[Rfam]
RNA sequence: AACAAAAUGAGGAGGCUAAAUGAUCUGAAGUAUCUGAUGUUGAUACAUCAAUUCAUGGUCUUCAAAGUUCUCUGAUUGCU
Numbered sequence: 001a002a003c004a005a006a007a008u009g010a011g012g013a014g015g016c017u018a019a020a021u022g023a024u025c026u027g028a029a030g031u032a033u034c035u036g037a038u039g040u041u042g043a044u045a046c047a048u049c050a051a052u053u054c055a056u057g058g059u060c061u062u063c064a065a066a067g068u069u070c071u072c073u074g075a076u077u078g079c080u
Base pairs, nucleotide, nucleotide: 001080003078004077005076
Dot-bracket structure: (.(((......................................................................))).)
Shown here is an 80-nucleotide RNA sequence from Miscanthus lutarioriparius, a member of the family "Small nucleolar RNA R160". Rfam 15.1 lists 799 matches to the family in 221 species. Rfam's curators write: snoR160 is a C/D box small nucleolar RNA, which acts as a methylation guide for 25S ribosomal RNA in plants. snoR160 has been alternatively named snoZ270 in rice. The match comes from Rfam's covariance-model search (94 bits). Rfam links the family to the GO terms RNA processing and nucleolus. The base pairs follow the family's consensus structure. The family's RNA type in Rfam is C/D-box small nucleolar RNA. A reference for the family is Chen et al. (2003), "The high diversity of snoRNAs in plants: identification and comparative study of 120 snoRNA genes from Oryza sativa", Nucleic Acids Res.